[Rfam]
RNA sequence: GUCAGACACGAGGCAGAUUUGUACUACGACCGAGUCUUGUUUCUGGCUUCAAGGAAGACGGACGCGUCGCCGCAACCCUAGAGGCGGCAUCCCCCGCGUGACGCCCUUUCAGGCACCGUCGUGACCGGAUUCCUUGUCUUACUCACCGCGUCGACUGCAUAUGCACGCGUCACGCGCGCUGGCGAUCAGCUGGUCGCCGAGGUGUAGCGAUAGCACAGCAGCGACUUCACCAGGAAGGUGAUCUGGGUGGCCGAGCGUGCAUCCACCCGCAUGACCGGGAUGCGAAAGCCUUCGGCCACCAAGGCAUCGCGAAAU
Numbered sequence: 001g002u003c004a005g006a007c008a009c010g011a012g013g014c015a016g017a018u019u020u021g022u023a024c025u026a027c028g029a030c031c032g033a034g035u036c037u038u039g040u041u042u043c044u045g046g047c048u049u050c051a052a053g054g055a056a057g058a059c060g061g062a063c064g065c066g067u068c069g070c071c072g073c074a075a076c077c078c079u080a081g082a083g084g085c086g087g088c089a090u091c092c093c094c095c096g097c098g099u100g101a102c103g104c105c106c107u108u109u110c111a112g113g114c115a116c117c118g119u120c121g122u123g124a125c126c127g128g129a130u131u132c133c134u135u136g137u138c139u140u141a142c143u144c145a146c147c148g149c150g151u152c153g154a155c156u157g158c159a160u161a162u163g164c165a166c167g168c169g170u171c172a173c174g175c176g177c178g179c180u181g182g183c184g185a186u187c188a189g190c191u192g193g194u195c196g197c198c199g200a201g202g203u204g205u206a207g208c209g210a211u212a213g214c215a216c217a218g219c220a221g222c223g224a225c226u227u228c229a230c231c232a233g234g235a236a237g238g239u240g241a242u243c244u245g246g247g248u249g250g251c252c253g254a255g256c257g258u259g260c261a262u263c264c265a266c267c268c269g270c271a272u273g274a275c276c277g278g279g280a281u282g283c284g285a286a287a288g289c290c291u292u293c294g295g296c297c298a299c300c301a302a303g304g305c306a307u308c309g310c311g312a313a314a315u
Base pairs, nucleotide, nucleotide: 001047002046003045004044005043006042008040009039010038011037012036013035014034020028021027022026050136051135052134053133054132055131056130060126061125063123064122065121066120069088070087071086072085073084096114097113099111100110101109150211152209167175168174177204178203179202180199181198183196184195185194186193187192221310222309223308224307227241228240229239230238231237242304243303244302246300247299248298249297250296251295252294253293254292255289256288258284259283260282261281262280263279268277269276
Record summary: Rfam assigns this 315-nucleotide RNA from Xanthomonas oryzae to the family "Xanthomonas sRNA asX4/Xoo4". The source organism's lineage runs through Bacteria, Pseudomonadota, Gammaproteobacteria, Xanthomonas and Xanthomonas oryzae pv. oryzae. It is one of the family's seed sequences. The literature on the family includes a 2011 paper in Nucleic Acids Res by Schmidtke et al., "Genome-wide transcriptome analysis of the plant pathogen Xanthomonas identifies sRNAs with putative virulence functions". The family's RNA type in Rfam is small RNA.